The record is a 101-nucleotide RNA from Desulforamulus profundi, which matches "Purine riboswitch aptamer" in Rfam. The match comes from Rfam's covariance-model search (78 bits). The base pairs follow the family's consensus structure, which is taken from published work. Lineage of the source: Bacteria > Bacillota > Clostridia > Eubacteriales > Desulforamulus.

RNA sequence: GUUUGGACAUGUUAAUUAAUCCGUAUAUGCUUGGGAAUUGGCUCAAGUGUUUCUACCGGGCAACCGUAAAUUGCCCGACUACGGAGGGAAAGUGUACCUAG
Number, nucleotide and partner (000 for none) at each position: 001g000002u000003u000004u000005g000006g000007a000008c000009a000010u000011g000012u000013u000014a000015a000016u000017u000018a000019a000020u085021c084022c083023g082024u081025a080026u000027a000028u000029g048030c047031u046032u045033g044034g043035g042036a000037a000038u000039u000040g000041g000042c035043u034044c033045a032046a031047g030048u029049g000050u000051u000052u000053c000054u000055a000056c000057c077058g076059g075060g074061c073062a072063a071064c000065c000066g000067u000068a000069a000070a000071u063072u062073g061074c060075c059076c058077g057078a000079c000080u025081a024082c023083g022084g021085a020086g000087g000088g000089a000090a000091a000092g000093u000094g000095u000096a000097c000098c000099u000100a000101g000